[Rfam]
RNA sequence: GCUCUAUUAGCAUAGUGGUUUAGUGCAUCCGACUUUCUAUCGGAAGACAAGGGUUCGAUUCCCUUAUAGAGUA
Number, nucleotide and partner (000 for none) at each position: 001g072002c071003u070004c069005u068006a067007u066008u000009a000010g026011c025012a024013u023014a000015g000016u000017g000018g000019u000020u000021u000022a000023g013024u012025g011026c010027a000028u044029c043030c042031g041032a040033c000034u000035u000036u000037c000038u000039a000040u032041c031042g030043g029044a028045a000046g000047a000048c000049a065050a064051g063052g062053g061054u000055u000056c000057g000058a000059u000060u000061c053062c052063c051064u050065u049066a007067u006068a005069g004070a003071g002072u001073a000
Shown here is a 73-nucleotide sequence from Winogradskyella flava, a member of the family "tRNA". The family's RNA type in Rfam is transfer RNA. Transfer RNA (tRNA) molecules are approximately 80 nucleotides in length. Taxonomically the source falls in Winogradskyella (Bacteria, Bacteroidota, Flavobacteriia, Flavobacteriaceae).